[Rfam]
A member of the RNA family "Makes More Granules Regulator RNA (mmgR)" from Methylobacterium sp. GXS13, 77 nucleotides long. The match comes from Rfam's covariance-model search (63 bits). Rfam classes the family as a small RNA. The organism belongs to Methylobacterium, within Bacteria. About the family: SuhB later renamed mmgR (makes more granules regulator) was a putative non-coding RNA found multiple times in the Agrobacterium tumefaciens genome and related alpha-proteobacteria. Other non-coding RNAs uncovered in the same analysis include: speF, ybhL, metA, and serC.Several studies inSinorhizobium meliloti showed that suhB element is indeed a non-coding RNA:firstly it was detected on Northern blot and called Sm8RNA, secondly in an RNAseq study referred to as SmelC689.The mutant phenotype's (strain lacking the small RNA) cytoplasm contains higher content of polyhydroxybutyrate (PBH)storage granules than wild type strain. The sRNA is required to limit the PBH intracellular accumulation when the nitrogen-fixing Sinorhizobium meliloti is under condition of surplus carbon in relation to nitrogen. The pairing is the family consensus, mapped onto this sequence.
RNA sequence: UCCUGCAGCCCUCCCAAGGGCGUUUCCUCCCAAGACUUCGGGCCGCUCCUUCGGGGGUGGCCUUUUUUCUGCCCAGG
Numbered sequence: 001u002c003c004u005g006c007a008g009c010c011c012u013c014c015c016a017a018g019g020g021c022g023u024u025u026c027c028u029c030c031c032a033a034g035a036c037u038u039c040g041g042g043c044c045g046c047u048c049c050u051u052c053g054g055g056g057g058u059g060g061c062c063u064u065u066u067u068u069c070u071g072c073c074c075a076g077g
Stems, first nucleotide, its partner, number of pairs: 008021004041062009